[Rfam]
RNA sequence: UACCACAGUAUUGAAUGCCCUGAGACAGCAGGUACCGUAAGGUGUAAGGCGAAAACGCCUGCCGAGGAACAUACAAAACUCUGAUUAUUUAUGAUGAGAUUUUGCGAACCUCUCUGUCUUUACGGCGGAGAGGUUUUUUGUCCGGUCU
Numbered sequence: 001u002a003c004c005a006c007a008g009u010a011u012u013g014a015a016u017g018c019c020c021u022g023a024g025a026c027a028g029c030a031g032g033u034a035c036c037g038u039a040a041g042g043u044g045u046a047a048g049g050c051g052a053a054a055a056c057g058c059c060u061g062c063c064g065a066g067g068a069a070c071a072u073a074c075a076a077a078a079c080u081c082u083g084a085u086u087a088u089u090u091a092u093g094a095u096g097a098g099a100u101u102u103u104g105c106g107a108a109c110c111u112c113u114c115u116g117u118c119u120u121u122a123c124g125g126c127g128g129a130g131a132g133g134u135u136u137u138u139u140g141u142c143c144g145g146u147c148u
Stems, first nucleotide, its partner, number of pairs: 028062006034043003109133010
The record is a 148-nucleotide sequence from Enterocloster bolteae, which matches "Ribosomal protein L10 leader" in Rfam. The sequence is in the family's curated seed alignment. NCBI's taxonomy places the organism under Bacteria, Clostridia, Lachnospirales, Enterocloster, Enterocloster bolteae. Rfam links the family to the GO term regulation of gene expression. The family's RNA type in Rfam is cis-regulatory leader. Pairs were carried over by alignment from the consensus structure, which was predicted with CMfinder. The literature on the family includes a 2008 paper in Biochemistry by Iben and Draper, "Specific interactions of the L10(L12)4 ribosomal protein complex with mRNA, rRNA, and L11".